int-alpA RNA: a 71-nucleotide RNA from Herminiimonas arsenicoxydans. Rfam's curators write: Acidobacteria (1 example), Planctomycetes (1 example), Proteobacteria. The family's consensus secondary structure is taken from published work. The sequence is in the family's curated seed alignment.
[Rfam]
RNA sequence: CGCCAGACUAUCCCGACGGGGAGAAAAGCGGAUACCUUCAUUCGCCUGUCUGGUGACCCAUUUAAUGAAGG
Numbered sequence: 001c002g003c004c005a006g007a008c009u010a011u012c013c014c015g016a017c018g019g020g021g022a023g024a025a026a027a028g029c030g031g032a033u034a035c036c037u038u039c040a041u042u043c044g045c046c047u048g049u050c051u052g053g054u055g056a057c058c059c060a061u062u063u064a065a066u067g068a069a070g071g
Stems, first nucleotide, its partner, number of pairs: 001055008011022004028045004035071006